[Rfam]
RNA sequence: UAAUAUUUAUCGCUGAAUUCUUGUGAAAGAAGCGGGGGAACCAUUUAACUGGGGUGAAUCCUUUUUGGACGGGCAAAAUCCCUUAGCCCGAACCCGUCAGCUAACCUCGCAAGCGUGGAGGGGGGAUUG
Number, nucleotide and partner (000 for none) at each position: 001u000002a000003a000004u000005a000006u000007u000008u000009a000010u000011c115012g114013c113014u112015g000016a000017a000018u031019u030020c029021u000022u000023g000024u000025g000026a000027a000028a000029g020030a019031a018032g110033c109034g108035g107036g106037g105038g000039a000040a000041c000042c051043a050044u000045u000046u000047a000048a000049c000050u043051g042052g095053g094054g093055u000056g000057a000058a000059u000060c068061c067062u000063u000064u000065u000066u000067g061068g060069a000070c000071g089072g088073g087074c086075a000076a000077a000078a000079u000080c000081c000082c000083u000084u000085a000086g074087c073088c072089c071090g000091a000092a000093c054094c053095c052096g000097u000098c000099a000100g000101c000102u000103a000104a000105c037106c036107u035108c034109g033110c032111a000112a014113g013114c012115g011116u000117g000118g000119a000120g000121g000122g000123g000124g000125g000126a000127u000128u000129g000
RNA: c-di-AMP riboswitch aptamer (ydaO/yuaA leader)